[Rfam]
RNA sequence: UCUGGCAAUGAUGACACUCUUGCCCUCACUGAGAUCAGGUUCCCUGAUGAGAGCAGUUUUACGUGCUCAGUGGAGCCGAGCCAGA
Numbered sequence: 001u002c003u004g005g006c007a008a009u010g011a012u013g014a015c016a017c018u019c020u021u022g023c024c025c026u027c028a029c030u031g032a033g034a035u036c037a038g039g040u041u042c043c044c045u046g047a048u049g050a051g052a053g054c055a056g057u058u059u060u061a062c063g064u065g066c067u068c069a070g071u072g073g074a075g076c077c078g079a080g081c082c083a084g085a
Base pairs, nucleotide, nucleotide: 001085002084003083004082005081006080
The family of this 85-nucleotide RNA sequence from Hemiprocne comata is "Small nucleolar RNA SNORD103/SNORD85".
The pairing is the family consensus, mapped onto this sequence.
The organism belongs to Hemiprocne, within Eukaryota.